[Rfam]
RNA sequence: GGUCAUGAGUGUCAGCAGAUAGCCCCGGCUUGCUGACCGGCAACCCUCCUUCCGCGGUGGGGUGCCCCGGGUGAAGACCUGGCCGGGCGCGAAGGGCGCCCCGGCAAGCGCGGGCC
Numbered sequence: 001g002g003u004c005a006u007g008a009g010u011g012u013c014a015g016c017a018g019a020u021a022g023c024c025c026c027g028g029c030u031u032g033c034u035g036a037c038c039g040g041c042a043a044c045c046c047u048c049c050u051u052c053c054g055c056g057g058u059g060g061g062g063u064g065c066c067c068c069g070g071g072u073g074a075a076g077a078c079c080u081g082g083c084c085g086g087g088c089g090c091g092a093a094g095g096g097c098g099c100c101c102c103g104g105c106a107a108g109c110g111c112g113g114g115c116c
Stems, first nucleotide, its partner, number of pairs: 001079004009038001011037006021030002039066003044062003048057002082105006088098003